[Rfam]
RNA sequence: UUCACAUUUGGCAAUGAGGUCUGCCUUAAACCGCUACAACUGGAGCUGAUGACUUCUACUUUUAA
Dot-bracket structure: .........[[[[..((((((]]]].......(((........)))....)))))).........